The family of this 75-nucleotide sequence from Eptesicus fuscus is "mir-9229 microRNA precursor family". The sequence is in the family's curated seed alignment.
[Rfam]
Nucleotides: 075
Stems, first nucleotide, its partner, number of pairs: 001073006008066004013061006020055003028052005034046002036043002
Number, partner (000 for none) and nucleotide at each position: 001073a002072g003071a004070u005069a006068c007000c008066c009065u010064u011063a012000u013061g014060g015059g016058g017057c018056a019000g020055g021054a022053c023000u024000u025000g026000c027000u028052u029051c030050a031049g032048u033000a034046g035045g036043g037042c038000u039000u040000u041000g042037g043036u044000g045035c046034u047000c048032a049031c050030u051029g052028a053022g054021u055020c056018u057017g058016c059015c060014c061013c062000c063011u064010a065009a066008g067000u068006g069005u070004g071003u072002c073001u074000c075000u

About this RNA: The family's consensus secondary structure was predicted with RNAalifold. Lineage of the source: Eukaryota > Gnathostomata > Amniota > Eutheria > Eptesicus.